Nucleotides: 088
Base pairs, nucleotide, nucleotide: 012037013036017032018031019030020029021028022027040082041081042080043079045078046077047076049072050071055067056066057065058064
Number, partner (000 for none) and nucleotide at each position: 001000u002000a003000a004000u005000g006000u007000a008000a009000a010000u011000g012037g013036c014000a015000a016000a017032c018031u019030u020029a021028u022027u023000g024000a025000a026000a027022g028021a029020u030019a031018a032017g033000g034000g035000c036013g037012c038000a039000a040082a041081a042080c043079c044000a045078u046077g047076u048000a049072u050071c051000u052000a053000a054000g055067g056066g057065g058064u059000u060000a061000a062000a063000a064058a065057u066056c067055c068000u069000a070000u071050g072049a073000a074000u075000g076047a077046c078045a079043g080042g081041u082040u083000a084000c085000c086000a087000u088000u
Shown here is an 88-nucleotide sequence from Alkaliphilus peptidifermentans, a member of the family "c-di-GMP-I riboswitch aptamer". Rfam's curators write: GEMM was predicted in a large-scale screen for bacterial structured RNA regulatory elements. The base pairs follow the family's consensus structure, which is taken from published work. Taxonomically the source falls in Alkaliphilus peptidifermentans (Bacteria, Peptostreptococcales, Natronincolaceae, Alkaliphilus).